[Rfam]
RNA sequence: GCCGAGAGGGCGGAGAAUACAACACCCGAAAGGGGAAUAAUCCCGGCCGUUCUUUGUUUCGGUUUACGAACCUCUUGGCGACCCUAU
Numbered sequence: 001g002c003c004g005a006g007a008g009g010g011c012g013g014a015g016a017a018u019a020c021a022a023c024a025c026c027c028g029a030a031a032g033g034g035g036a037a038u039a040a041u042c043c044c045g046g047c048c049g050u051u052c053u054u055u056g057u058u059u060c061g062g063u064u065u066a067c068g069a070a071c072c073u074c075u076u077g078g079c080g081a082c083c084c085u086a087u
Stems, first nucleotide, its partner, number of pairs: 001079009013044001015042002025034003045064005
Background: Shown here is an 87-nucleotide sequence from Haemophilus influenzae, a member of the family "sRNA-Xcc1". The organism belongs to Haemophilus influenzae, within Bacteria. By type it is a small RNA. The base pairs follow the family's consensus structure, which was predicted with RNAalifold.